[Rfam]
RNA sequence: CAGAUGAGGAUAAGGAGGAGGAGUACGAUACAAGAAUGUAUCAUUUCAGUGAGCAUGUACCUCCAGCGAGGGAGAGCAAGAGCUUGAGCGAAGCUCACAGAAACAACAGCAAGUUGCAGAAAUGGUGCAAGAAACAAGAUAGGCUACUCAUCAAGUGCUUCAAGGUCAUCAAGUUUUUGACAGACAAGCUAAACUGCUCCUCUUCUACCACAGCUAUUUCG
Numbered sequence: 001c002a003g004a005u006g007a008g009g010a011u012a013a014g015g016a017g018g019a020g021g022a023g024u025a026c027g028a029u030a031c032a033a034g035a036a037u038g039u040a041u042c043a044u045u046u047c048a049g050u051g052a053g054c055a056u057g058u059a060c061c062u063c064c065a066g067c068g069a070g071g072g073a074g075a076g077c078a079a080g081a082g083c084u085u086g087a088g089c090g091a092a093g094c095u096c097a098c099a100g101a102a103a104c105a106a107c108a109g110c111a112a113g114u115u116g117c118a119g120a121a122a123u124g125g126u127g128c129a130a131g132a133a134a135c136a137a138g139a140u141a142g143g144c145u146a147c148u149c150a151u152c153a154a155g156u157g158c159u160u161c162a163a164g165g166u167c168a169u170c171a172a173g174u175u176u177u178u179g180a181c182a183g184a185c186a187a188g189c190u191a192a193a194c195u196g197c198u199c200c201u202c203u204u205c206u207a208c209c210a211c212a213g214c215u216a217u218u219u220c221g
Stems, first nucleotide, its partner, number of pairs: 001221001003219002011210001014206012

The family of this 221-nucleotide sequence from Arabidopsis thaliana is "MIR854 microRNA precursor family".